The family of this 90-nucleotide RNA from Brenthis ino is "mir-282 microRNA precursor family".
[Rfam]
RNA sequence: UUGGGAUGUUGACCUAGCCUCUCCUUGGCUUUGUCUGUAUCUUACGAUGUUUCAGACAUAGCCUGAUAGAGGUUACGUUUUAUCCCGUUU
Numbered sequence: 001u002u003g004g005g006a007u008g009u010u011g012a013c014c015u016a017g018c019c020u021c022u023c024c025u026u027g028g029c030u031u032u033g034u035c036u037g038u039a040u041c042u043u044a045c046g047a048u049g050u051u052u053c054a055g056a057c058a059u060a061g062c063c064u065g066a067u068a069g070a071g072g073u074u075a076c077g078u079u080u081u082a083u084c085c086c087g088u089u090u
Stems, first nucleotide, its partner, number of pairs: 012078002015075006027063004032058005
A reference for the family is Li et al. (2009), "Direct sequencing and expression analysis of a large number of miRNAs in Aedes aegypti and a multi-species survey of novel mosquito miRNAs", BMC Genomics.
A search with the family's covariance model found it, with a score of 81 bits.
Taxonomically the source falls in Brenthis (Eukaryota, Protostomia, Pterygota, Lepidoptera).